[Rfam]
RNA sequence: GGCAGUCUUUGUGGCAAGGUGAAAAUCCUUACCGAUGGUGAUAGUCCAUGACCCGUGCGACGCACGGCUGAUUUGGUGAAAUUCCAAAACCGACGGUUAUAGUCCGGAUGAGAAAAGACGUUU
Numbered sequence: 001g002g003c004a005g006u007c008u009u010u011g012u013g014g015c016a017a018g019g020u021g022a023a024a025a026u027c028c029u030u031a032c033c034g035a036u037g038g039u040g041a042u043a044g045u046c047c048a049u050g051a052c053c054c055g056u057g058c059g060a061c062g063c064a065c066g067g068c069u070g071a072u073u074u075g076g077u078g079a080a081a082u083u084c085c086a087a088a089a090c091c092g093a094c095g096g097u098u099a100u101a102g103u104c105c106g107g108a109u110g111a112g113a114a115a116a117g118a119c120g121u122u123u
Base pairs, nucleotide, nucleotide: 005119006118007117008116009115010114017029018028019027031103032102033092034091035049036048037047038046044090045089053067054066072088073087074086075085076084094106095105096104